[Rfam]
RNA sequence: CUGUGCAGCCGGGGUGCUAGCGGUACCCUGUACCUACAAUCCGCUAUAGUGGGGGUGAUGCUGUGCCGAGGGCUUUACUUGUCAAAGCUGCCUCUGGUUUGUGGCGUUGAGAUUUGGGUCUUACGCGGCGGGACUCUGUGAACCGUGUCAGGUCGGGAACGAAGCAGCACUAAGCAGAACCUCUCGGGUGCCGUAAGGUAGCCUGGGUUGAGUUUACAGCCAGAGUAACGUUUGGUAGGCUUUAGUUCGACGCACAGCGCACAG
Number, nucleotide and partner (000 for none) at each position: 001c264002u263003g262004u261005g260006c259007a000008g056009c055010c054011g029012g028013g027014g026015u025016g024017c023018u022019a000020g000021c000022g018023g017024u016025a015026c014027c013028c012029u011030g000031u000032a000033c053034c052035u051036a050037c049038a000039a000040u000041c000042c000043g000044c000045u000046a000047u000048a000049g037050u036051g035052g034053g033054g010055g009056u008057g000058a000059u000060g000061c257062u256063g255064u254065g253066c252067c000068g000069a000070g248071g247072g246073c245074u244075u000076u000077a000078c239079u238080u237081g236082u235083c234084a233085a232086a000087g000088c000089u227090g226091c000092c000093u224094c223095u222096g221097g220098u219099u000100u000101g217102u216103g214104g213105c212106g000107u000108u000109g000110a000111g209112a208113u207114u206115u205116g204117g203118g202119u201120c197121u196122u195123a194124c193125g192126c188127g000128g000129c186130g185131g184132g183133a182134c000135u178136c177137u176138g175139u174140g000141a000142a000143c000144c000145g170146u169147g168148u167149c000150a000151g000152g000153u162154c161155g160156g000157g000158a000159a000160c155161g154162a153163a000164g000165c000166a000167g148168c147169a146170c145171u000172a000173a000174g139175c138176a137177g136178a135179a000180c000181c000182u133183c132184u131185c130186g129187g000188g126189u000190g000191c000192c125193g124194u123195a122196a121197g120198g000199u000200a000201g119202c118203c117204u116205g115206g114207g113208u112209u111210g000211a000212g105213u104214u103215u000216a102217c101218a000219g098220c097221c096222a095223g094224a093225g000226u090227a089228a000229c000230g000231u000232u085233u084234g083235g082236u081237a080238g079239g078240c000241u000242u000243u000244a074245g073246u072247u071248c070249g000250a000251c000252g066253c065254a064255c063256a062257g061258c000259g006260c005261a004262c003263a002264g001
Rfam assigns this 264-nucleotide RNA sequence from Allocoprococcus comes to the family "Bacterial large signal recognition particle RNA". The match comes from Rfam's covariance-model search (186 bits). The base pairs follow the family's consensus structure, which is taken from published work. The family's RNA type in Rfam is non-coding RNA gene.